This 102-nucleotide RNA from Sporosarcina luteola belongs to the Rfam family "TPP riboswitch aptamer (THI element)".
Pairs were carried over by alignment from the consensus structure, which is taken from published work.
Lineage of the source: Bacteria > Bacillati > Bacillota > Caryophanales > Sporosarcina.
Rfam's curators write: Vitamin B(1) in its active form thiamin pyrophosphate (TPP) is an essential coenzyme that is synthesised by coupling of pyrimidine and thiazole moieties in bacteria.
RNA sequence: CCUAUACACUAGGGGUGUUUAUGUAACUGAGAUGAGUAGUAACUCAAACCCUUUGAACCUGAACUAGCUAAGACUAGCGUAGGAAAGUGUAAACUUCAAUAC
Numbered sequence: 001c002c003u004a005u006a007c008a009c010u011a012g013g014g015g016u017g018u019u020u021a022u023g024u025a026a027c028u029g030a031g032a033u034g035a036g037u038a039g040u041a042a043c044u045c046a047a048a049c050c051c052u053u054u055g056a057a058c059c060u061g062a063a064c065u066a067g068c069u070a071a072g073a074c075u076a077g078c079g080u081a082g083g084a085a086a087g088u089g090u091a092a093a094c095u096u097c098a099a100u101a102c
Stems, first nucleotide, its partner, number of pairs: 006090005011052004016046001017027003034045004058083004064077004